RNA sequence: GGCGGGUCCCCUCGCAUGAGGAAGCCAUGAAUCUGGUCAGGUCGGGAACGAAGCAGCCACAGUGGAUUUUCUUCAGUGCCGAGGAUAAGGCUCGCCACU
Numbered sequence: 001g002g003c004g005g006g007u008c009c010c011c012u013c014g015c016a017u018g019a020g021g022a023a024g025c026c027a028u029g030a031a032u033c034u035g036g037u038c039a040g041g042u043c044g045g046g047a048a049c050g051a052a053g054c055a056g057c058c059a060c061a062g063u064g065g066a067u068u069u070u071c072u073u074c075a076g077u078g079c080c081g082a083g084g085a086u087a088a089g090g091c092u093c094g095c096c097a098c099u
Stems, first nucleotide, its partner, number of pairs: 004093005010084005015076001017075006023067001025065004034059004042051003